A member of the RNA family "T-box leader" from Bacillus thuringiensis, 249 nucleotides long.
Rfam describes the family as follows. Uncharged tRNA acts as the effector for transcription antitermination of genes in the T-box leader family. T-boxes are found upstream of many aminoacyl-tRNA synthetase genes and some amino acid biosynthetic genes usually in Gram-positive bacteria. The anticodon of a specific tRNA base pairs to a specifier sequence within the T-box motif, and the NCCA acceptor tail of the tRNA base pairs to a conserved bulge in the T-box antiterminator hairpin.
The family's RNA type in Rfam is cis-regulatory leader.
RNA sequence: AUGAAAUCGAUGAGCAAGAAGAGUAUGUAUAUUUGAUACGUUCAGAGAGCUGGGGGAAGGUGUGAGCCCGGUACGAUAAAAUAUACAGAAUGGGCUUGCGAGAGGUAUGUUGAACAUUGUAGUAGGCAACCCGGGUUCCGCCGUUAAAAGGAUAGAGUAUCGGAGUUUUUCCUGUACUUGAACAAGUGGGAUUUAUCAAUCCAAUUGAGGUGGUACCACGGUAUUAACAUUACAUAUAUCGUCCUCUAC
Numbered sequence: 001a002u003g004a005a006a007u008c009g010a011u012g013a014g015c016a017a018g019a020a021g022a023g024u025a026u027g028u029a030u031a032u033u034u035g036a037u038a039c040g041u042u043c044a045g046a047g048a049g050c051u052g053g054g055g056g057a058a059g060g061u062g063u064g065a066g067c068c069c070g071g072u073a074c075g076a077u078a079a080a081a082u083a084u085a086c087a088g089a090a091u092g093g094g095c096u097u098g099c100g101a102g103a104g105g106u107a108u109g110u111u112g113a114a115c116a117u118u119g120u121a122g123u124a125g126g127c128a129a130c131c132c133g134g135g136u137u138c139c140g141c142c143g144u145u146a147a148a149a150g151g152a153u154a155g156a157g158u159a160u161c162g163g164a165g166u167u168u169u170u171c172c173u174g175u176a177c178u179u180g181a182a183c184a185a186g187u188g189g190g191a192u193u194u195a196u197c198a199a200u201c202c203a204a205u206u207g208a209g210g211u212g213g214u215a216c217c218a219c220g221g222u223a224u225u226a227a228c229a230u231u232a233c234a235u236a237u238a239u240c241g242u243c244c245u246c247u248a249c
Base pairs, nucleotide, nucleotide: 007103008102015098016097017096018095026087027086028085029084030083031082039075040074041073049072050071051070052069053068054067105130106129108128109127110126111125132143133142134141189202190201191200192199193198207246208245209244210243218242219241220240221239222238223237224236